[Rfam]
Notes:
THF (Tetrahydrofolate) riboswitch aptamer: a 108-nucleotide RNA from Lachnospiraceae bacterium XBD2001. A reference for the family is Ames et al. (2010), "A eubacterial riboswitch class that senses the coenzyme tetrahydrofolate", Chem Biol. Rfam links the family to the GO term tetrahydrofolate metabolic process. A search with the family's covariance model found it, with a score of 80 bits. About the family: Tetrahydrofolate (THF) riboswitch was first reported for Ames et al. as an RNA motif in 5' untranslated (5'-UTR)regions of folate transport and biosynthesis genes in Firmicutes genomes. Pairs were carried over by alignment from the consensus structure, which is taken from published work. The organism belongs to Lachnospiraceae, within Bacteria.
RNA sequence: UGCAGAGUAGAUUACGAAGCGUCAAGUGCCGAGUGAACAGGGAGUUGUCAUUCGGACGAAAAGAGAUGAAUAUUCAUCCUUGCGGUUUCGCAGUCGCAUCCCGCUGCU
Numbered sequence: 001u002g003c004a005g006a007g008u009a010g011a012u013u014a015c016g017a018a019g020c021g022u023c024a025a026g027u028g029c030c031g032a033g034u035g036a037a038c039a040g041g042g043a044g045u046u047g048u049c050a051u052u053c054g055g056a057c058g059a060a061a062a063g064a065g066a067u068g069a070a071u072a073u074u075c076a077u078c079c080u081u082g083c084g085g086u087u088u089c090g091c092a093g094u095c096g097c098a099u100c101c102c103g104c105u106g107c108u
Stems, first nucleotide, its partner, number of pairs: 002107004010095004015090005020084003026057002029055008040101003044097001061081003